The family of this 77-nucleotide RNA sequence from Fukomys damarensis is "Small nucleolar RNA SNORD74".
RNA sequence: GUUCCCGAAUGAUGAAGCCUGUGUUGGUAGGGACAUCUGAGAAUGCUGAUGAAUGCCAACAGCUCUGAUGGCGGCAC
Numbered sequence: 001g002u003u004c005c006c007g008a009a010u011g012a013u014g015a016a017g018c019c020u021g022u023g024u025u026g027g028u029a030g031g032g033a034c035a036u037c038u039g040a041g042a043a044u045g046c047u048g049a050u051g052a053a054u055g056c057c058a059a060c061a062g063c064u065c066u067g068a069u070g071g072c073g074g075c076a077c
Stems, first nucleotide, its partner, number of pairs: 001077002004074002
About this RNA:
The source organism's lineage runs through Eukaryota, Craniata, Boreoeutheria, Bathyergidae and Fukomys. The family is grouped with related families in Rfam's "SNORD74 clan". The family's consensus secondary structure was predicted with PFOLD.